[Rfam]
RNA sequence: AAGGCAGUGCCCGAAAAGCCUGUAAUAGAGUAGGGA
Numbered sequence: 001a002a003g004g005c006a007g008u009g010c011c012c013g014a015a016a017a018g019c020c021u022g023u024a025a026u027a028g029a030g031u032a033g034g035g036a
Stems, first nucleotide, its partner, number of pairs: 002021004010035003

The family of this 36-nucleotide RNA sequence is "DUF805b RNA". The base pairs follow the family's consensus structure, which is taken from published work. Rfam classes the family as a cis-regulatory element.